The family of this 156-nucleotide RNA from Hoeflea prorocentri is "speF leader".
NCBI's taxonomy places the organism under Bacteria, Pseudomonadati, Alphaproteobacteria, Rhizobiaceae, Hoeflea.
Rfam's curators write: This family is a putative regulatory RNA structure that is found upstream of the speF gene encoding ornithine decarboxylase in Agrobacterium tumefaciens and other alpha-proteobacteria.
The match comes from Rfam's covariance-model search (91 bits).
RNA sequence: UGCCGGCUGUCCAAAGGCCGGGGUUACUGCAGAGGCACACCUUCAUUGCCGGACGUGCGGUCGGGGUUCCCAACCAAUCCAAGGCAGACAAAGCAGGAGCAUUCGGACCGGUUUCGGCCCGGGGUUCCAUCGUCGCAUCGACCAUGUGUCGCGGAG
Numbered sequence: 001u002g003c004c005g006g007c008u009g010u011c012c013a014a015a016g017g018c019c020g021g022g023g024u025u026a027c028u029g030c031a032g033a034g035g036c037a038c039a040c041c042u043u044c045a046u047u048g049c050c051g052g053a054c055g056u057g058c059g060g061u062c063g064g065g066g067u068u069c070c071c072a073a074c075c076a077a078u079c080c081a082a083g084g085c086a087g088a089c090a091a092a093g094c095a096g097g098a099g100c101a102u103u104c105g106g107a108c109c110g111g112u113u114u115c116g117g118c119c120c121g122g123g124g125u126u127c128c129a130u131c132g133u134c135g136c137a138u139c140g141a142c143c144a145u146g147u148g149u150c151g152c153g154g155a156g
Stems, first nucleotide, its partner, number of pairs: 001023001003021006034050004134148005